[Rfam]
RNA: tRNA
RNA sequence: GGCAUCGUGUCCGAGUGGCUAGGAAGCGGUCUGCAAAACCGUCUACAGCGGUUCGAAUCCGCUCGAUGCCU
Dot-bracket structure: (((((((..(((.........))).(((((.......)))))....(((((.......)))))))))))).